A member of the RNA family "Z30 small nucleolar RNA" from Labrus bergylta, 97 nucleotides long.
RNA sequence: CUGCAGUGAUGAGGAUCUGUUCUGACCUGGUAUUGUUUUCUCUCUGGGGAGAACUCUGACCAGGAAGUGAUCUCACUUUAAUCUUCUCUCUGAGCAG
Numbered sequence: 001c002u003g004c005a006g007u008g009a010u011g012a013g014g015a016u017c018u019g020u021u022c023u024g025a026c027c028u029g030g031u032a033u034u035g036u037u038u039u040c041u042c043u044c045u046g047g048g049g050a051g052a053a054c055u056c057u058g059a060c061c062a063g064g065a066a067g068u069g070a071u072c073u074c075a076c077u078u079u080a081a082u083c084u085u086c087u088c089u090c091u092g093a094g095c096a097g
Stems, first nucleotide, its partner, number of pairs: 003095002035054004
NCBI's taxonomy places the organism under Eukaryota, Craniata, Vertebrata, Euteleosteomorpha, Labrus. The family has 20 seed sequences and 802 matches in Rfam 15.1. A reference for the family is Galardi et al. (2002), "Purified box C/D snoRNPs are able to reproduce site-specific 2'-O-methylation of target RNA in vitro", Mol Cell Biol.